[Rfam]
RNA sequence: CUGGCAAAUGCCGGCGGAACUACAGUGUCGCGGGUUCGAUUCCCGUCCCUGAUUUCACUUCUCAGGGCAGCUCAGUUGGUCGAGCAAGUUCGUUUCGCCAAACCCUUGUUGCCAGACC
Numbered sequence: 001c002u003g004g005c006a007a008a009u010g011c012c013g014g015c016g017g018a019a020c021u022a023c024a025g026u027g028u029c030g031c032g033g034g035u036u037c038g039a040u041u042c043c044c045g046u047c048c049c050u051g052a053u054u055u056c057a058c059u060u061c062u063c064a065g066g067g068c069a070g071c072u073c074a075g076u077u078g079g080u081c082g083a084g085c086a087a088g089u090u091c092g093u094u095u096c097g098c099c100a101a102a103c104c105c106u107u108g109u110u111g112c113c114a115g116a117c118c
Stems, first nucleotide, its partner, number of pairs: 002114006013099007023088001030046005037079001047067006070085004

Y RNA-like: a 118-nucleotide RNA. On this family, see Chen et al., Cell 2013: "An RNA degradation machine sculpted by Ro autoantigen and noncoding RNA". The family's consensus secondary structure is taken from published work. It is annotated as a small RNA. About the family: In Deinococcus radiodurans Rsr is tethered via Y RNA to the exoribonuclease PNPase and channels single-stranded RNA into the PNPase cavity. Rsr and Y RNA enhance degradation of structured RNAs by PNPase. This role could be conserved, as Rsr and ncRNAs called YrlA and YrlB (Y RNA like) also associate with PNPase in an evolutionary distant bacterium Salmonella Typhimurium.